[Rfam]
RNA sequence: GUUGUUGUACCACAAUAGCAGAAGUGCUCAUGGUGCAGCCAUGUCAGAUUCCAAUGAAUCUGUGAAUUCUGCU
Dot-bracket structure: .....[[..[......((((((((((.......))).].]]...(((((((....)))))))....)))))))
Numbered sequence: 001g002u003u004g005u006u007g008u009a010c011c012a013c014a015a016u017a018g019c020a021g022a023a024g025u026g027c028u029c030a031u032g033g034u035g036c037a038g039c040c041a042u043g044u045c046a047g048a049u050u051c052c053a054a055u056g057a058a059u060c061u062g063u064g065a066a067u068u069c070u071g072c073u
Stems, first nucleotide, its partner, number of pairs: 006041002010038001017073007024036003045062007
The record is a 73-nucleotide RNA sequence from Crocodylus porosus, which matches "Mammalian CPEB3 ribozyme" in Rfam. Its family is annotated with RNA nuclease activity in the Gene Ontology. The base pairs follow the family's consensus structure, which is taken from published work.